[Rfam]
This 62-nucleotide RNA sequence from Anoxybacillus sp. B7M1 belongs to the Rfam family "RAGATH-18 RNA". Rfam classes the family as a small RNA.
RNA sequence: CCUCUGGAGCGUUACACCAAACGAGAGUAGCCCUGGCGAAAUCGGGCGCGAUGAAUGAGGAA
Numbered sequence: 001c002c003u004c005u006g007g008a009g010c011g012u013u014a015c016a017c018c019a020a021a022c023g024a025g026a027g028u029a030g031c032c033c034u035g036g037c038g039a040a041a042u043c044g045g046g047c048g049c050g051a052u053g054a055a056u057g058a059g060g061a062a
Stems, first nucleotide, its partner, number of pairs: 001060004009049005022044003030037002
Dot-bracket structure: ((((....(((((........(((.....((....))....)))))))).......))))..

Pairs were carried over by alignment from the consensus structure, which is taken from published work.